[Rfam]
RNA: Ruegeria cis52 sRNA
Organism: Lutimaribacter saemankumensis
RNA sequence: UGCGCAGCGCGUGCCGCAUCACGAUGUUGGGAAAGCUUACGCCCUUCAGCCGCGCGGUGCGGAUGUAUUGCGCGGUCAUGACCUCGGCCAUCGAGGCCCGUGUCAUCCGGGCGAUGUACCCCAUGCCGUAAAGCGCGAUGGUCAGCACCGGCAGAAAGAAGUUCUCGAAGUUCGGGCUU
Numbered sequence: 001u002g003c004g005c006a007g008c009g010c011g012u013g014c015c016g017c018a019u020c021a022c023g024a025u026g027u028u029g030g031g032a033a034a035g036c037u038u039a040c041g042c043c044c045u046u047c048a049g050c051c052g053c054g055c056g057g058u059g060c061g062g063a064u065g066u067a068u069u070g071c072g073c074g075g076u077c078a079u080g081a082c083c084u085c086g087g088c089c090a091u092c093g094a095g096g097c098c099c100g101u102g103u104c105a106u107c108c109g110g111g112c113g114a115u116g117u118a119c120c121c122c123a124u125g126c127c128g129u130a131a132a133g134c135g136c137g138a139u140g141g142u143c144a145g146c147a148c149c150g151g152c153a154g155a156a157a158g159a160a161g162u163u164c165u166c167g168a169a170g171u172u173c174g175g176g177c178u179u
Base pairs, nucleotide, nucleotide: 005140006139008137009136010135011134012133020125021124028123029122030121031120038113040111042109046105048103051100052099054097055075057073058072059071060070061069062068082096083095084094085093086092147178148175149174150173151172154165156163157162